[Rfam]
RNA sequence: GGUAAUAAAUACUCUCCGUAAUAAAUAUAAUGGACUCGAGGGCAGAACUCGACAUCUCCACCAAAGAGGGGGUGAAAUAGAUUCGACAUAUAUUCAAAGGGUGCAGCUUUUACUCAGCGUGAUGCAGCUGUAAAAUUGAUCGUAAAAAUAAAUGCAAACGACAACGUAAUGCAUGGAGAAGAGAGACUACAAACUGCUUUUGCAUAA
Numbered sequence: 001g002g003u004a005a006u007a008a009a010u011a012c013u014c015u016c017c018g019u020a021a022u023a024a025a026u027a028u029a030a031u032g033g034a035c036u037c038g039a040g041g042g043c044a045g046a047a048c049u050c051g052a053c054a055u056c057u058c059c060a061c062c063a064a065a066g067a068g069g070g071g072g073u074g075a076a077a078u079a080g081a082u083u084c085g086a087c088a089u090a091u092a093u094u095c096a097a098a099g100g101g102u103g104c105a106g107c108u109u110u111u112a113c114u115c116a117g118c119g120u121g122a123u124g125c126a127g128c129u130g131u132a133a134a135a136u137u138g139a140u141c142g143u144a145a146a147a148a149u150a151a152a153u154g155c156a157a158a159c160g161a162c163a164a165c166g167u168a169a170u171g172c173a174u175g176g177a178g179a180a181g182a183g184a185g186a187c188u189a190c191a192a193a194c195u196g197c198u199u200u201u202g203c204a205u206a207a
Stems, first nucleotide, its partner, number of pairs: 001114005014103001016101002026092003030089003036052005053074007115130004